Description
The record is a 60-nucleotide RNA sequence from Streptomyces taklimakanensis, which matches "Actino-pnp RNA" in Rfam. The family's consensus secondary structure is taken from published work. NCBI's taxonomy places the organism under Bacteria, Bacillati, Kitasatosporales, Streptomycetaceae, Streptomyces.
[Rfam]
RNA sequence: GCCGGUCCUCGGUAGUGGCCCCCGGGCAUGUGGUCCCGGGAGCUUCGAUCGAAGACCGGU
Numbered sequence: 001g002c003c004g005g006u007c008c009u010c011g012g013u014a015g016u017g018g019c020c021c022c023c024g025g026g027c028a029u030g031u032g033g034u035c036c037c038g039g040g041a042g043c044u045u046c047g048a049u050c051g052a053a054g055a056c057c058g059g060u
Stems, first nucleotide, its partner, number of pairs: 001060007009052005017044003021040006